[Rfam]
RNA sequence: GAUAUGCGAUGAAGCGGGAGGUUGCAACGCAAAAGCGUUGGUUUUUCCGUGGAGUAUGUCCGAUUUUAAACCGGGCGA
Numbered sequence: 001g002a003u004a005u006g007c008g009a010u011g012a013a014g015c016g017g018g019a020g021g022u023u024g025c026a027a028c029g030c031a032a033a034a035g036c037g038u039u040g041g042u043u044u045u046u047c048c049g050u051g052g053a054g055u056a057u058g059u060c061c062g063a064u065u066u067u068a069a070a071c072c073g074g075g076c077g078a
Base pairs, nucleotide, nucleotide: 014050015049016048018047019046020045021044025040026039027038028037029036059078060077064075065074066073
Rfam assigns this 78-nucleotide sequence from Ruminococcus difficilis to the family "S10-Clostridia ribosomal protein leader".
The base pairs follow the family's consensus structure, which is taken from published work.
Taxonomically the source falls in Ruminococcus (Bacteria, Bacillota, Clostridia, Oscillospiraceae).